[Rfam]
RNA sequence: CAUACAGCCGGGCAUACCGUAGUUGCAAGCGCCGGAAAGUAUCUGAGUCUACGUA
Number, nucleotide and partner (000 for none) at each position: 001c000002a000003u000004a000005c000006a000007g000008c035009c034010g000011g033012g030013c029014a000015u000016a000017c000018c053019g052020u051021a050022g049023u000024u000025g000026c000027a000028a000029g013030c012031g000032c000033c011034g009035g008036a000037a000038a000039g000040u000041a000042u000043c000044u000045g000046a000047g000048u000049c022050u021051a020052c019053g018054u000055a000
RNA: Exoribonuclease-resistant RNA (xrRNA) plant-infecting virus (class 3)